[Rfam]
RNA: LOOT RNA
RNA sequence: GACCUAACCCCUAGUAUUCCACUAGGAUAUGGUCGAAAAUCGCGACAAACAUAAAAACCCCAUCAUUAGGGCGUUUGUCGCGUUACAUCUGGAAACGGGUGUAGGGUCUUCGGAUC
Numbered sequence: 001g002a003c004c005u006a007a008c009c010c011c012u013a014g015u016a017u018u019c020c021a022c023u024a025g026g027a028u029a030u031g032g033u034c035g036a037a038a039a040u041c042g043c044g045a046c047a048a049a050c051a052u053a054a055a056a057a058c059c060c061c062a063u064c065a066u067u068a069g070g071g072c073g074u075u076u077g078u079c080g081c082g083u084u085a086c087a088u089c090u091g092g093a094a095a096c097g098g099g100u101g102u103a104g105g106g107u108c109u110u111c112g113g114a115u116c
Stems, first nucleotide, its partner, number of pairs: 001034004010026006041082010058071003084103008105116004